[Rfam]
RNA sequence: AAUUCUGUUAGUAAGAACAAGAGAAGCAGAUCUAUUCUAUACCGCUAAGUACAAAUUACGCAAUGGG
Dot-bracket structure: ..((.((((......))))))....................((.....(((.....))).....)).
This 67-nucleotide RNA sequence from Musa balbisiana belongs to the Rfam family "Plastid-clpP 5UTR RNA". Plastid clpP is a non-coding RNA (ncRNA) recognised in plastids. It was found in the prime untranslated region (5UTR) of a protease complex subunit (clpP) in plastids, suggesting a posible cis-regulatory function. The literature on the family includes a 2023 paper in Plant Commun by Richter et al., "Retrograde signaling in plants: A critical review focusing on the GUN pathway and beyond". A search with the family's covariance model found it, with a score of 61 bits. By type it is a cis-regulatory element.